Rfam assigns this 74-nucleotide sequence from Operophtera brumata to the family "mir-2755 microRNA precursor family". Gene Ontology terms of the family: miRNA-mediated post-transcriptional gene silencing and RISC complex.
[Rfam]
RNA sequence: UCGGUGGGACAAGGUGGUCUAGCAGUGUGUUGUUCGACAAAUUCACACCCUGUCAGACCAUACUUGUUUUAACU
Number, nucleotide and partner (000 for none) at each position: 001u000002c000003g000004g000005u071006g070007g069008g068009a067010c066011a065012a064013g063014g061015u060016g059017g058018u000019c056020u055021a000022g053023c052024a051025g050026u000027g048028u047029g046030u045031u000032g000033u000034u000035c000036g000037a000038c000039a000040a000041a000042u000043u000044c000045a030046c029047a028048c027049c000050c025051u024052g023053u022054c000055a020056g019057a000058c017059c016060a015061u014062a000063c013064u012065u011066g010067u009068u008069u007070u006071a005072a000073c000074u000